[Rfam]
RNA sequence: UACUGUAAGUGAUGACUGUUUAAAAACAUUGGGAAUCUCUCUGAAAAAUAAUGAAAGAAAUGUUUUUACUGAUGCAGUU
Numbered sequence: 001u002a003c004u005g006u007a008a009g010u011g012a013u014g015a016c017u018g019u020u021u022a023a024a025a026a027c028a029u030u031g032g033g034a035a036u037c038u039c040u041c042u043g044a045a046a047a048a049u050a051a052u053g054a055a056a057g058a059a060a061u062g063u064u065u066u067u068a069c070u071g072a073u074g075c076a077g078u079u
Stems, first nucleotide, its partner, number of pairs: 002078006
RNA: Small nucleolar RNA SNORD79
Organism: Coregonus sp. 'balchen'